Bacterial RNase P class B: a 339-nucleotide RNA from Desulfocucumis palustris. A search with the family's covariance model found it, with a score of 143 bits. On this family, see Frank and Pace, Annu Rev Biochem 1998: "Ribonuclease P: unity and diversity in a tRNA processing ribozyme".
[Rfam]
RNA sequence: UACGGUGAGCAGUUGCUGUUCCCAUAGGGAGCAGAGGAAAGUCGAGACACGCACAUAUUCAAAUAUGUAAAACGGUGCCCGGCGCAAGCCGGGGCAGGGCGACCUGACGACGGCGAAAGGAACUCAUGAAAGUUUCCGGUAGCUGUAAAGUGCCACAGAAACCAUGUCACCGGGCGACCGGUGAGUGCAAGGGUAAACUCCGCCGGCGUGCAACCCAAAUAGGUGACUUUAAGUCACGGGUAGGGGCACCCCCUUAAUAGGGGGAAGGAAGGAUUCUUAUAUAAAAGAACCCUUUCUUAGAUAGAUAACUGCUUGAAAAACAGAAUCUCGCUUACAGCC
Numbered sequence: 001u002a003c004g005g006u007g008a009g010c011a012g013u014u015g016c017u018g019u020u021c022c023c024a025u026a027g028g029g030a031g032c033a034g035a036g037g038a039a040a041g042u043c044g045a046g047a048c049a050c051g052c053a054c055a056u057a058u059u060c061a062a063a064u065a066u067g068u069a070a071a072a073c074g075g076u077g078c079c080c081g082g083c084g085c086a087a088g089c090c091g092g093g094g095c096a097g098g099g100c101g102a103c104c105u106g107a108c109g110a111c112g113g114c115g116a117a118a119g120g121a122a123c124u125c126a127u128g129a130a131a132g133u134u135u136c137c138g139g140u141a142g143c144u145g146u147a148a149a150g151u152g153c154c155a156c157a158g159a160a161a162c163c164a165u166g167u168c169a170c171c172g173g174g175c176g177a178c179c180g181g182u183g184a185g186u187g188c189a190a191g192g193g194u195a196a197a198c199u200c201c202g203c204c205g206g207c208g209u210g211c212a213a214c215c216c217a218a219a220u221a222g223g224u225g226a227c228u229u230u231a232a233g234u235c236a237c238g239g240g241u242a243g244g245g246g247c248a249c250c251c252c253c254u255u256a257a258u259a260g261g262g263g264g265a266a267g268g269a270a271g272g273a274u275u276c277u278u279a280u281a282u283a284a285a286a287g288a289a290c291c292c293u294u295u296c297u298u299a300g301a302u303a304g305a306u307a308a309c310u311g312c313u314u315g316a317a318a319a320a321c322a323g324a325a326u327c328u329c330g331c332u333u334a335c336a337g338c339c
Stems, first nucleotide, its partner, number of pairs: 004339003007335001008313007016034006039333003043330005048210005053068006073205005078093006094108001095106004109200002112144003120135004150198002152194003167184007214245003249264006265298008
Rfam describes the family as follows. Ribonuclease P (RNase P) is a ubiquitous endoribonuclease, found in archaea, bacteria and eukarya as well as chloroplasts and mitochondria. Its best characterised activity is the generation of mature 5'-ends of tRNAs by cleaving the 5'-leader elements of precursor-tRNAs. Cellular RNase Ps are ribonucleoproteins. RNA from bacterial RNase Ps retains its catalytic activity in the absence of the protein subunit, i.e. it is a ribozyme. Isolated eukaryotic and archaeal RNase P RNA has not been shown to retain its catalytic function, but is still essential for the catalytic activity of the holoenzyme. Although the archaeal and eukaryotic holoenzyme s have a much greater protein content than the bacterial ones, the RNA cores from all the three lineages are homologous -- helices corresponding to P1, P2, P3, P4, and P10/11 are common to all cellular RNase P RNAs. Yet, there is considerable sequence variation, particularly among the eukaryotic RNAs. NCBI's taxonomy places the organism under Bacteria, Bacillati, Bacillota, Eubacteriales, Desulfocucumis.